[Rfam]
This 106-nucleotide sequence from Polaribacter porphyrae belongs to the Rfam family "SAM riboswitch aptamer (S box leader)". The SAM riboswitch is found upstream of a number of genes which code for proteins involved in methionine or cysteine biosynthesis in Gram-positive bacteria. The SAM riboswitch acts at the level of transcription termination control. The predicted structure consists of a complex stem-loop region followed by a single stem loop terminator region. Taxonomically the source falls in Polaribacter (Bacteria, Pseudomonadati, Bacteroidota, Flavobacteriia). It scores 82 bits against the family's covariance model.

RNA sequence: ACGUUAUCACGAAAGGUAGAGGGAUUAGACCCAAUGAAACCUUGGCAACCUCUCACUAUUGAGAAAGGUGCUACAUUCUACAGAAUUUUAUUCUGACAGAUAACAG
Dot-bracket structure: ..((((((....(((((...(((..[[[[)))......)))))((((.((((((......))))..))))))...(]]]]((((((...))))))..)))))))..